[Rfam]
The family of this 101-nucleotide RNA from Candidatus Kurthia intestinigallinarum is "Purine riboswitch aptamer".
Rfam links the family to the GO term purine nucleobase biosynthetic process.
The family's consensus secondary structure is taken from published work.
Rfam's curators write: Riboswitches are metabolite binding domains within certain messenger RNAs that serve as precision sensors for their corresponding targets.
The source organism's lineage runs through Bacteria, Bacillota, Bacilli, Caryophanales and Kurthia.
RNA sequence: UUUUUAAAAGAGAAUAACCCUUGUAUAAUUUCAAGAAUAUGGCUUGAAAGUUUCUACCAGCUACCAAUAAUAGCUUGUCUACAAGGAAUGGGAUACUGUAA
Dot-bracket structure: ..................(((((((...(((((((.......)))))))........((((((.......)))).))..)))))))...............
Numbered sequence: 001u002u003u004u005u006a007a008a009a010g011a012g013a014a015u016a017a018c019c020c021u022u023g024u025a026u027a028a029u030u031u032c033a034a035g036a037a038u039a040u041g042g043c044u045u046g047a048a049a050g051u052u053u054c055u056a057c058c059a060g061c062u063a064c065c066a067a068u069a070a071u072a073g074c075u076u077g078u079c080u081a082c083a084a085g086g087a088a089u090g091g092g093a094u095a096c097u098g099u100a101a
Stems, first nucleotide, its partner, number of pairs: 019086007029049007058077002060074004